[Rfam]
RNA sequence: AUAAACUUUCGAGAACCAUUUGAAUCAAGUAGUGUAGUGAUUCAAAUGGUUCUCACAAA
Numbered sequence: 001a002u003a004a005a006c007u008u009u010c011g012a013g014a015a016c017c018a019u020u021u022g023a024a025u026c027a028a029g030u031a032g033u034g035u036a037g038u039g040a041u042u043c044a045a046a047u048g049g050u051u052c053u054c055a056c057a058a059a
Stems, first nucleotide, its partner, number of pairs: 011054017
RNA: Plastid-ccsA-ndhD-1 3UTR RNA
Organism: Lythrum salicaria